The record is a 107-nucleotide RNA from Carpinus fangiana, which matches "mir-166 microRNA precursor family" in Rfam. On this family, see Reinhart et al., Genes Dev 2002: "MicroRNAs in plants". About the family: This family represents the plant microRNA (miRNA) precursor mir-166. The organism belongs to Carpinus, within Eukaryota.
RNA sequence: GGUGUGGGGAAUGUUGUCUGGCUCGAGCCACCAAUCAACUUGAUGAUGAUGAUGAUGAUGAUGAAAGUUUGAGAGAUUUUCUCGGACCAGGCUUCAUUCCCCUCACU
Numbered sequence: 001g002g003u004g005u006g007g008g009g010a011a012u013g014u015u016g017u018c019u020g021g022c023u024c025g026a027g028c029c030a031c032c033a034a035u036c037a038a039c040u041u042g043a044u045g046a047u048g049a050u051g052a053u054g055a056u057g058a059u060g061a062u063g064a065a066a067g068u069u070u071g072a073g074a075g076a077u078u079u080u081c082u083c084g085g086a087c088c089a090g091g092c093u094u095c096a097u098u099c100c101c102c103u104c105a106c107u
Base pairs, nucleotide, nucleotide: 001107002106003105004104006102007101008100009099010098011097012096013095016092017091018090019089020088021087024084025083026082